[Rfam]
RNA sequence: GGAAAAGGAACUUCUACUAAAACCGCCCACGUCAUGUGGGCAACGUAGAAGUCACCACCUCCUGUGGA
Numbered sequence: 001g002g003a004a005a006a007g008g009a010a011c012u013u014c015u016a017c018u019a020a021a022a023c024c025g026c027c028c029a030c031g032u033c034a035u036g037u038g039g040g041c042a043a044c045g046u047a048g049a050a051g052u053c054a055c056c057a058c059c060u061c062c063u064g065u066g067g068a
Base pairs, nucleotide, nucleotide: 011051012050013049014048015047016046017045026040027039028038029037030036055067056066057065058064
The family of this 68-nucleotide sequence from Oceanobacillus sp. J11TS1 is "Bacillaceae-1 RNA". Rfam classes the family as a small RNA. The base pairs follow the family's consensus structure, which is taken from published work. The family has 95 seed sequences and 5,721 matches in Rfam 15.1.